[Rfam]
RNA sequence: GGUCACGAGUGACAGCGACGAAGGCCCCGGCCCGCUGUCCGGCAACCCUCCUUCCGUGGUGGGGUGCCCCGGGUGAUGACCGGGCCGUACGGCAGCAGGGCCGUUCGGCAAGCACGGAUC
Number, nucleotide and partner (000 for none) at each position: 001g081002g080003u079004c078005a000006c000007g000008a000009g040010u000011g039012a038013c037014a036015g035016c034017g000018a000019c000020g000021a000022a000023g032024g031025c000026c000027c000028c000029g000030g000031c024032c023033c000034g016035c015036u014037g013038u012039c011040c009041g068042g067043c066044a000045a000046c064047c063048c062049u000050c059051c058052u000053u000054c000055c000056g000057u000058g051059g050060u000061g000062g048063g047064g046065u000066g043067c042068c041069c000070c000071g000072g000073g000074u000075g000076a000077u000078g004079a003080c002081c001082g000083g000084g109085c108086c107087g106088u000089a104090c103091g102092g101093c100094a000095g000096c000097a000098g000099g000100g093101c092102c091103g090104u089105u000106c087107g086108g085109c084110a000111a000112g000113c000114a000115c000116g000117g000118a000119u000120c000
RNA: SAM (S-adenosyl methionine) riboswitch aptamer